[Rfam]
Nucleotides: 134
Base pairs, nucleotide, nucleotide: 003079004078006076007075008074009073010072019064020063021062022061023060026057027056028055036052037051038050039049093110095107096106097105
Number, partner (000 for none) and nucleotide at each position: 001000a002000u003079a004078g005000a006076c007075u008074u009073c010072u011000u012000u013000g014000u015000g016000u017000g018000a019064u020063g021062g022061u023060g024000u025000u026057u027056u028055c029000g030000u031000u032000a033000u034000u035000a036052g037051u038050c039049u040000c041000u042000u043000a044000a045000g046000u047000u048000g049039a050038g051037a052036u053000g054000a055028g056027a057026a058000u059000c060023u061022g062021c063020c064019g065000c066000c067000u068000a069000a070000u071000a072010a073009g074008a075007a076006g077000c078004u079003u080000a081000u082000g083000a084000u085000u086000g087000g088000a089000a090000u091000u092000u093110u094000u095107g096106c097105c098000a099000u100000u101000u102000a103000u104000g105097g106096g107095c108000u109000u110093a111000c112000a113000c114000g115000a116000a117000u118000a119000g120000a121000a122000c123000g124000u125000u126000c127000a128000c129000u130000u131000g132000g133000g134000u